A member of the RNA family "Y RNA-like" from Rubricoccus marinus, 121 nucleotides long. Rfam's curators write: In Deinococcus radiodurans Rsr is tethered via Y RNA to the exoribonuclease PNPase and channels single-stranded RNA into the PNPase cavity. Rsr and Y RNA enhance degradation of structured RNAs by PNPase. This role could be conserved, as Rsr and ncRNAs called YrlA and YrlB (Y RNA like) also associate with PNPase in an evolutionary distant bacterium Salmonella Typhimurium. The organism belongs to Rubricoccus, within Bacteria. The family's RNA type in Rfam is small RNA. A search with the family's covariance model found it, with a score of 73 bits.
[Rfam]
RNA sequence: AGGGCGAAUGCCCGUGGGACUACACGGUCGCGGGUUCGAAUCCCGCCGUGCCCGGUCCGCCGGGCGCGUAGCUCAGUCCGGUAGAGCAUGAAUCGUCCCGCACCUCUCUCGUCGCCUCUGA
Numbered sequence: 001a002g003g004g005c006g007a008a009u010g011c012c013c014g015u016g017g018g019a020c021u022a023c024a025c026g027g028u029c030g031c032g033g034g035u036u037c038g039a040a041u042c043c044c045g046c047c048g049u050g051c052c053c054g055g056u057c058c059g060c061c062g063g064g065c066g067c068g069u070a071g072c073u074c075a076g077u078c079c080g081g082u083a084g085a086g087c088a089u090g091a092a093u094c095g096u097c098c099c100g101c102a103c104c105u106c107u108c109u110c111g112u113c114g115c116c117u118c119u120g121a
Base pairs, nucleotide, nucleotide: 002117003116004115005114006113007112014101015100016099017098018097019096023090024089030046031045032044033043034042037081047068048067049066050065051064052063053062054061055060071087072086073085074084